[Rfam]
RNA sequence: UACUGCUUUAGUGGUAGAAGACUUUGUCAGGCAUCAAGGCGGGCAUAAAAAAAACGCCCGAAGGCGUUUUUUCUUACAG
Numbered sequence: 001u002a003c004u005g006c007u008u009u010a011g012u013g014g015u016a017g018a019a020g021a022c023u024u025u026g027u028c029a030g031g032c033a034u035c036a037a038g039g040c041g042g043g044c045a046u047a048a049a050a051a052a053a054a055c056g057c058c059c060g061a062a063g064g065c066g067u068u069u070u071u072u073c074u075u076a077c078a079g
Stems, first nucleotide, its partner, number of pairs: 004013002051070008
Dot-bracket structure: ...((......)).....................................((((((((....)))))))).........
This 79-nucleotide RNA from Jejuibacter calystegiae belongs to the Rfam family "Enterobacteria sRNA STnc130". Rfam classes the family as a small RNA.